[Rfam]
RNA: F6 TB sRNA
Organism: Williamsia sterculiae
RNA sequence: AGAUGAUUCCGGUUGAGCUGCCAGACCCCCGACCCGGCAGCUCGACCGGAGUCUUUA
Numbered sequence: 001a002g003a004u005g006a007u008u009c010c011g012g013u014u015g016a017g018c019u020g021c022c023a024g025a026c027c028c029c030c031g032a033c034c035c036g037g038c039a040g041c042u043c044g045a046c047c048g049g050a051g052u053c054u055u056u057a
Stems, first nucleotide, its partner, number of pairs: 002056002005053001007051016